[Rfam]
The family of this 108-nucleotide RNA sequence from Leptothrix cholodnii is "Glycine riboswitch aptamer".
Rfam links the family to the GO term glycine biosynthetic process.
The family is grouped with related families in Rfam's "Glycine riboswitch clan".
RNA sequence: ACCACGCCGUCUGGAGAGACGUCACGCCCGUGACGCACCGAAGGAGCAAGGCCCCGGCACAGCGCCGCGCGGCUGAAACUCUCAGGUAUCAAGGACAGGGGGAGCGGC
Numbered sequence: 001a002c003c004a005c006g007c008c009g010u011c012u013g014g015a016g017a018g019a020c021g022u023c024a025c026g027c028c029c030g031u032g033a034c035g036c037a038c039c040g041a042a043g044g045a046g047c048a049a050g051g052c053c054c055c056g057g058c059a060c061a062g063c064g065c066c067g068c069g070c071g072g073c074u075g076a077a078a079c080u081c082u083c084a085g086g087u088a089u090c091a092a093g094g095a096c097a098g099g100g101g102g103a104g105c106g107g108c
Base pairs, nucleotide, nucleotide: 007102008101010099011098012097013096020035021034022033023032037087038086039085040083041082044081045080046079050074051073052072053071
Dot-bracket structure: ......((.((((......((((........)))).(((((..(((...((((.................))))....))))).)))........)))).))......